The record is a 107-nucleotide RNA from Neobacillus massiliamazoniensis, which matches "PyrR binding site" in Rfam. It scores 64 bits against the family's covariance model. The family's consensus secondary structure is taken from published work. It is annotated as a cis-regulatory element. Rfam links the family to the GO terms pyrimidine nucleobase biosynthetic process and pyrimidine nucleobase transport. This family represents the PyrR binding site and terminator structure. This RNA structure is found upstream of a variety of genes involved in pyrimidine biosynthesis and transport.
[Rfam]
RNA sequence: UAUUCCUUUUAAAUCAGUCCAGAGAGACUGAAAAGGGCGAGUAAUCUUGAAAUAGGUUUAGUUUGCCCAUGCCCUUUUGUCCUCUGUGACAAAAGGGCAUUUUUAGU
Numbered sequence: 001u002a003u004u005c006c007u008u009u010u011a012a013a014u015c016a017g018u019c020c021a022g023a024g025a026g027a028c029u030g031a032a033a034a035g036g037g038c039g040a041g042u043a044a045u046c047u048u049g050a051a052a053u054a055g056g057u058u059u060a061g062u063u064u065g066c067c068c069a070u071g072c073c074c075u076u077u078u079g080u081c082c083u084c085u086g087u088g089a090c091a092a093a094a095g096g097g098c099a100u101u102u103u104u105a106g107u
Stems, first nucleotide, its partner, number of pairs: 004037006014031006043058005069100012